This 98-nucleotide RNA from Microbacterium sp. belongs to the Rfam family "mraW RNA". The match comes from Rfam's covariance-model search (64 bits). By type it is a cis-regulatory element. The family's consensus secondary structure is taken from published work. The source organism's lineage runs through Bacteria, Bacillati, Actinomycetes, Micrococcales and Microbacterium.

RNA sequence: UUCUGAGCCGUGGCCCUGACUCCCAGCCGCACGCCCUGACACACUUCCCCGGUGGCAGGUCGGAGCGGAUGGGGAUCAGGGCCCCGGAUCCCCAUCCG
Dot-bracket structure: .........(.(((((.((.(((((.((((.((.((((.(((.........))).)))).))..)))).))))).)).))))).).............